[Rfam]
RNA sequence: UCUGAGCUCCGUCUACAAAUAGAUAAAAUCUCAGUCUAGUCUAUAGAAAGUCUUGAAGAAAAAAAAAAGGCAAUAAUUACUUUCUUGUUCUAUCAGGAGGAUGUUAUUGCUCCUUU
Numbered sequence: 001u002c003u004g005a006g007c008u009c010c011g012u013c014u015a016c017a018a019a020u021a022g023a024u025a026a027a028a029u030c031u032c033a034g035u036c037u038a039g040u041c042u043a044u045a046g047a048a049a050g051u052c053u054u055g056a057a058g059a060a061a062a063a064a065a066a067a068a069g070g071c072a073a074u075a076a077u078u079a080c081u082u083u084c085u086u087g088u089u090c091u092a093u094c095a096g097g098a099g100g101a102u103g104u105u106a107u108u109g110c111u112c113c114u115u116u
Stems, first nucleotide, its partner, number of pairs: 008023002011020002064116003069111008080100001082099005
RNA: Plastid-psbA-1 3UTR RNA